[Rfam]
RNA sequence: ACUGGGCGUCGUGGCGGGCGCCUGUGAGCCAGCUUCUAGGCAGUAGAUUGGUGUGGAUGGAGUGAGGGGAGGAGUCCCGCGGUAGUCGUUGAGUACGGCGACCGGGCGUCCGCGCCAAGCGUUGCGUCGCCAGGGGUCAGCCGCCGGAAGGUGGCAGGUCCUGGGCGGUCAAGGAGGGGUGCACGGCCCAGGCCCGAAAGGGAGCAGGCAAAAGCCCCCGCGCGACGCAGUGGCCGGAUAGCGCCCGCGAGUGCUCGCACUGCCACGGCCUCUCCAAUACCUUCAGACCUCCAAUCGU
Dot-bracket structure: ((((((((((......)))))))....(((........)))))).((((((.(....(((((...(((((((....(((.((((...((..(((((......(((((((((..((((.(((((((((((((.((((((.((((((....)))))).)))))).)))).(...)..(((((.....(((....(((....)))....)))....))))).)))))))))..)))).))...)))))))...))))).))..)))).)))))))))).....)))))...).))))))..
RNA: Metazoan signal recognition particle RNA
Organism: Cylicocyclus nassatus